[Rfam]
RNA sequence: AGGUAGUUAUACGACUGGCGGAAGUGGAAUUAACCACAUGAAGUAUAAUCGUUGUAGAGCCGACCGUCUGGGCAGGAAGA
Numbered sequence: 001a002g003g004u005a006g007u008u009a010u011a012c013g014a015c016u017g018g019c020g021g022a023a024g025u026g027g028a029a030u031u032a033a034c035c036a037c038a039u040g041a042a043g044u045a046u047a048a049u050c051g052u053u054g055u056a057g058a059g060c061c062g063a064c065c066g067u068c069u070g071g072g073c074a075g076g077a078a079g080a
Stems, first nucleotide, its partner, number of pairs: 003052002006049007015040001017068005024037004059073003
Dot-bracket structure: ..((.(((((((..(.[[[[[..((((......))))..)..))))))).))......(((..]]]]]..))).......
Rfam assigns this 80-nucleotide RNA sequence from Sharpea azabuensis to the family "ZMP/ZTP riboswitch aptamer (pfl RNA motif)". It scores 56 bits against the family's covariance model.